RNA sequence: GUGUAUUCGAACCCUUAUCAUUCUUGCGCCCCGUGUAUCCUCUUAGCAACUGGACGGAGAACUGAUAAGGGCCCGGGUCACC
Numbered sequence: 001g002u003g004u005a006u007u008c009g010a011a012c013c014c015u016u017a018u019c020a021u022u023c024u025u026g027c028g029c030c031c032c033g034u035g036u037a038u039c040c041u042c043u044u045a046g047c048a049a050c051u052g053g054a055c056g057g058a059g060a061a062c063u064g065a066u067a068a069g070g071g072c073c074c075g076g077g078u079c080a081c082c
Base pairs, nucleotide, nucleotide: 012071013070014069015068016067017066018065019064020063021061022060023059024058025057030053031052
Background:
Rfam assigns this 82-nucleotide sequence from Hermetia illucens to the family "mir-184 microRNA precursor family". Its family is annotated with gene silencing by miRNA and RISC complex in the Gene Ontology. Lineage of the source: Eukaryota > Insecta > Pterygota > Stratiomyidae > Hermetia.